[Rfam]
RNA sequence: GCCGCAAACCACUCUAUCGCGGGCUCGUGCAAAUGAGCGUGAGGAAAGUCCGGACAACGUAGAGCGCCACACCAUCUAACGGAUGGGCUGCUGUGUUGAGCGCAAGCUCGAAACAGUGGACAGAGAGGGUCACAGAAAAGAAACUACCGCGCAAGCGGAAAAGGUGAAAACGUGUGGUAAGAGCACACGCGGCCAGGUAGCAAUAUCCGGUGUGGAUAAACCUUGUGGGUUGAAAUGUCAAGUAUACCUCAAUUGGGCGCAAGCCCAGCAGAGCUGCUCGCUUUGUUUUUGCAAAAAAGUUGGGGAGGGUAGGCAGAUGGAUCCCGCACCGCAAGGACGGGACUAGAUAAAUGAUAGAGGCUAUUGCUUUAGGGCAGUAGAACAGAAUCCGGCUUAUCGGUUUGCGGCAAAU
Numbered sequence: 001g002c003c004g005c006a007a008a009c010c011a012c013u014c015u016a017u018c019g020c021g022g023g024c025u026c027g028u029g030c031a032a033a034u035g036a037g038c039g040u041g042a043g044g045a046a047a048g049u050c051c052g053g054a055c056a057a058c059g060u061a062g063a064g065c066g067c068c069a070c071a072c073c074a075u076c077u078a079a080c081g082g083a084u085g086g087g088c089u090g091c092u093g094u095g096u097u098g099a100g101c102g103c104a105a106g107c108u109c110g111a112a113a114c115a116g117u118g119g120a121c122a123g124a125g126a127g128g129g130u131c132a133c134a135g136a137a138a139a140g141a142a143a144c145u146a147c148c149g150c151g152c153a154a155g156c157g158g159a160a161a162a163g164g165u166g167a168a169a170a171c172g173u174g175u176g177g178u179a180a181g182a183g184c185a186c187a188c189g190c191g192g193c194c195a196g197g198u199a200g201c202a203a204u205a206u207c208c209g210g211u212g213u214g215g216a217u218a219a220a221c222c223u224u225g226u227g228g229g230u231u232g233a234a235a236u237g238u239c240a241a242g243u244a245u246a247c248c249u250c251a252a253u254u255g256g257g258c259g260c261a262a263g264c265c266c267a268g269c270a271g272a273g274c275u276g277c278u279c280g281c282u283u284u285g286u287u288u289u290u291g292c293a294a295a296a297a298a299g300u301u302g303g304g305g306a307g308g309g310u311a312g313g314c315a316g317a318u319g320g321a322u323c324c325c326g327c328a329c330c331g332c333a334a335g336g337a338c339g340g341g342a343c344u345a346g347a348u349a350a351a352u353g354a355u356a357g358a359g360g361c362u363a364u365u366g367c368u369u370u371a372g373g374g375c376a377g378u379a380g381a382a383c384a385g386a387a388u389c390c391g392g393c394u395u396a397u398c399g400g401u402u403u404g405c406g407g408c409a410a411a412u
Stems, first nucleotide, its partner, number of pairs: 001408010011397001012359007020041002023038006046395003050392005055232004064292002067228005072086005087121001088119007122223002127221001129217003144163002147158004171189006191213001192211003196207004236315004247305005286298004322342005329336002
Rfam assigns this 412-nucleotide RNA from Haliscomenobacter hydrossis to the family "Bacterial RNase P class A". Ribonuclease P (RNase P) is a ubiquitous endoribonuclease, found in archaea, bacteria and eukarya as well as chloroplasts and mitochondria. The source organism's lineage runs through Bacteria, Bacteroidota, Saprospiria, Haliscomenobacteraceae and Haliscomenobacter hydrossis.